[Rfam]
RNA sequence: CUUGGGGGGUGGGAAGUCUCUCAGCCAGGUUUGUGAGAGGGUGCAGGCCAGGCUGAGGGACCUCACUGGUGCACA
Number, nucleotide and partner (000 for none) at each position: 001c000002u000003u073004g072005g000006g070007g000008g000009g000010u000011g066012g000013g064014a063015a000016g061017u060018c059019u058020c057021u056022c055023a054024g053025c052026c051027a000028g049029g048030u047031u046032u045033g044034u043035g042036a000037g000038a000039g000040g000041g000042u035043g034044c033045a032046g031047g030048c029049c028050a000051g026052g025053c024054u023055g022056a021057g020058g019059g018060a017061c016062c000063u014064c013065a000066c011067u000068g000069g000070u006071g000072c004073a003074c000075a000
Source information: Rfam assigns this 75-nucleotide RNA from Myotis myotis to the family "mir-9193 microRNA precursor family". Rfam 15.1 lists 6,008 matches to the family in 8 species. NCBI's taxonomy places the organism under Eukaryota, Dipnotetrapodomorpha, Amniota, Mammalia, Myotis. Pairs were carried over by alignment from the consensus structure, which was predicted with RNAalifold. Its family is annotated with miRNA-mediated post-transcriptional gene silencing and RISC complex in the Gene Ontology.